[Rfam]
This 397-nucleotide sequence from Ramlibacter ginsenosidimutans belongs to the Rfam family "Bacterial RNase P class A". The match comes from Rfam's covariance-model search (162 bits).
RNA sequence: GAAGCACGCCAGGCCGUCGCUGGUGCAAGGGCCGAAAGGCCGCACUGGAGGAACGUCCGGACUGCACAGGGCAGCGUAGCAGGCAACACCUGUCCACCGUGAGGUGAGGAUCAGAGCAACAGAGACGAGUCGGGAUGUCGCGUCGCGGCGGCGCAAGCCGCCGCAAAGCCCUUUCGGGGGUGAGCGGCAGACCGGGUGAAACGGGCAAUCUCUACGCGCAGCAAUACCAAAUAGGCCAGCGAUGGAGGGCGGUUCGCCGUCCUCCGGAUCCCGUGGCCCGCGGGCGGCUGGCGGGUAGGUAGCACCGAGCCGUGGGGGCGACUCCCGGCCCAGAAGAAUGGCGGUCACGCCCGGGCAACCGGGCGCACAGAAUCCGGCGUAACGGCGCGCUUCACAC
Numbered sequence: 001g002a003a004g005c006a007c008g009c010c011a012g013g014c015c016g017u018c019g020c021u022g023g024u025g026c027a028a029g030g031g032c033c034g035a036a037a038g039g040c041c042g043c044a045c046u047g048g049a050g051g052a053a054c055g056u057c058c059g060g061a062c063u064g065c066a067c068a069g070g071g072c073a074g075c076g077u078a079g080c081a082g083g084c085a086a087c088a089c090c091u092g093u094c095c096a097c098c099g100u101g102a103g104g105u106g107a108g109g110a111u112c113a114g115a116g117c118a119a120c121a122g123a124g125a126c127g128a129g130u131c132g133g134g135a136u137g138u139c140g141c142g143u144c145g146c147g148g149c150g151g152c153g154c155a156a157g158c159c160g161c162c163g164c165a166a167a168g169c170c171c172u173u174u175c176g177g178g179g180g181u182g183a184g185c186g187g188c189a190g191a192c193c194g195g196g197u198g199a200a201a202c203g204g205g206c207a208a209u210c211u212c213u214a215c216g217c218g219c220a221g222c223a224a225u226a227c228c229a230a231a232u233a234g235g236c237c238a239g240c241g242a243u244g245g246a247g248g249g250c251g252g253u254u255c256g257c258c259g260u261c262c263u264c265c266g267g268a269u270c271c272c273g274u275g276g277c278c279c280g281c282g283g284g285c286g287g288c289u290g291g292c293g294g295g296u297a298g299g300u301a302g303c304a305c306c307g308a309g310c311c312g313u314g315g316g317g318g319c320g321a322c323u324c325c326c327g328g329c330c331c332a333g334a335a336g337a338a339u340g341g342c343g344g345u346c347a348c349g350c351c352c353g354g355g356c357a358a359c360c361g362g363g364c365g366c367a368c369a370g371a372a373u374c375c376g377g378c379g380u381a382a383c384g385g386c387g388c389g390c391u392u393c394a395c396a397c
Stems, first nucleotide, its partner, number of pairs: 001393005007387004012346007020048007053380003057377005062221004069279004074217005079093005094108001095106004109212002114210002116206002131195001133192001136189006225301004235292006270284005309329004314325004

The base pairs follow the family's consensus structure, which is taken from published work. The source organism's lineage runs through Bacteria, Betaproteobacteria, Burkholderiales, Comamonadaceae and Ramlibacter.